[Rfam]
Nucleotides: 096
Stems, first nucleotide, its partner, number of pairs: 009023004052087003056078002060074005
Number, partner (000 for none) and nucleotide at each position: 001000g002000g003000u004000u005000u006000c007000c008000a009023u010022u011021g012020g013000u014000a015000c016000a017000a018000a019000u020012c021011c022010a023009a024000u025000c026000a027000c028000c029000u030000c031000a032000a033000u034000u035000u036000g037000a038000g039000a040000u041000g042000a043000g044000a045000a046000u047000u048000a049000a050000u051000u052087c053086c054085u055000c056078a057077u058000u059000u060074g061073u062072a063071g064070u065000a066000a067000a068000u069000g070064g071063u072062u073061a074060u075000c076000c077057a078056u079000u080000a081000a082000g083000u084000a085054a086053g087052g088000a089000a090000a091000u092000a093000g094000u095000u096000u
This 96-nucleotide sequence from Kingdonia uniflora belongs to the Rfam family "Plastid-rps12 3UTR RNA". On this family, see Richter et al., Plant Commun 2023: "Retrograde signaling in plants: A critical review focusing on the GUN pathway and beyond". The organism belongs to Kingdonia, within Eukaryota. Pairs were carried over by alignment from the consensus structure, which was predicted with LocARNA. Rfam's curators write: Plastid rpl20 is a non-coding RNA (ncRNA) recognised in plastids. It was found in the three prime untranslated region (3UTR) of rps12 gene, its 3UTR location sugest a role in transcript maduration. The match comes from Rfam's covariance-model search (92 bits).